[Rfam]
RNA sequence: GUGAAUCAUCCAUUUGUACCGUAGACAGUAGGAGUGACUUGUCACUUAAUGAUCCUACCGAGGACAUCGGAAUUCGGAUUCUUUUUAAGAUGAUGACUUUCAGCCUCUAUGUCUAGUAGACUUAGAGGCUUUUCUUUUGUCGGU
Numbered sequence: 001g002u003g004a005a006u007c008a009u010c011c012a013u014u015u016g017u018a019c020c021g022u023a024g025a026c027a028g029u030a031g032g033a034g035u036g037a038c039u040u041g042u043c044a045c046u047u048a049a050u051g052a053u054c055c056u057a058c059c060g061a062g063g064a065c066a067u068c069g070g071a072a073u074u075c076g077g078a079u080u081c082u083u084u085u086u087a088a089g090a091u092g093a094u095g096a097c098u099u100u101c102a103g104c105c106u107c108u109a110u111g112u113c114u115a116g117u118a119g120a121c122u123u124a125g126a127g128g129c130u131u132u133u134c135u136u137u138u139g140u141c142g143g144u
Stems, first nucleotide, its partner, number of pairs: 028058006034045003103129007111121002
RNA: Ribosomal protein L10 leader